Description:
A member of the RNA family "small nucleolar RNA snoR26" from Plasmodium berghei, 163 nucleotides long. It scores 54 bits against the family's covariance model. The literature on the family includes a 2007 paper in RNA by Chakrabarti et al., "Structural RNAs of known and unknown function identified in malaria parasites by comparative genomics and RNA analysis". The source organism's lineage runs through Eukaryota, Aconoidasida, Haemosporida, Plasmodiidae and Plasmodium berghei. The family's RNA type in Rfam is C/D-box small nucleolar RNA.
[Rfam]
RNA sequence: UACGCCUUAAAUAAAUGCCCAAUACAUUCAUGAUAUGUAGCUAAUAUUAUGAGAGCAUAUUUAUAUAGGCUAAAUAAAUUUUUAUGAUCAGUGAUAAAACGGGUUAAAAAAAAUUUAUAAACAUUUUUGACUCACCUGGCACUGGAACACCCACAUAUAUUUU
Dot-bracket structure: ....................((((.((...............................................................................................................................)).))))..